Pseudomon-Rho RNA: a 96-nucleotide RNA sequence from Pseudomonas japonica. NCBI's taxonomy places the organism under Bacteria, Pseudomonadati, Gammaproteobacteria, Pseudomonadaceae, Pseudomonas. Pairs were carried over by alignment from the consensus structure, which is taken from published work. By type it is a cis-regulatory element.
RNA sequence: UUCGGCCUCGCACUGUUUCUCCAGUGCCCCCUGCACGCCCGUCGCCGCAUUCCAAUUCGAAUUCAGUACGCGAUCUUUCGCCUCCCGCGGCGCGGC
Numbered sequence: 001u002u003c004g005g006c007c008u009c010g011c012a013c014u015g016u017u018u019c020u021c022c023a024g025u026g027c028c029c030c031c032u033g034c035a036c037g038c039c040c041g042u043c044g045c046c047g048c049a050u051u052c053c054a055a056u057u058c059g060a061a062u063u064c065a066g067u068a069c070g071c072g073a074u075c076u077u078u079c080g081c082c083u084c085c086c087g088c089g090g091c092g093c094g095g096c
Stems, first nucleotide, its partner, number of pairs: 010027006037096002040094002043092005070081004